[Rfam]
RNA: Small nucleolar RNA Z279/snoR105/snoR108
Organism: Zizania palustris
RNA sequence: GGGAUAUGAUGAGUGGUAAAAUCUCGCGAAUUUUGAUGCGAGUGGGGUGUCCGCCCCACCUAAGCCUGUUACGACAACAGGGCGCGCCCAUGAUUUACCGGUCUGAUCCC
Numbered sequence: 001g002g003g004a005u006a007u008g009a010u011g012a013g014u015g016g017u018a019a020a021a022u023c024u025c026g027c028g029a030a031u032u033u034u035g036a037u038g039c040g041a042g043u044g045g046g047g048u049g050u051c052c053g054c055c056c057c058a059c060c061u062a063a064g065c066c067u068g069u070u071a072c073g074a075c076a077a078c079a080g081g082g083c084g085c086g087c088c089c090a091u092g093a094u095u096u097a098c099c100g101g102u103c104u105g106a107u108c109c110c
Base pairs, nucleotide, nucleotide: 001110002109003108004107014100015099016098017097018096023042024041025040026039027038044088045087047085048084049083050082051081066080067079068078069077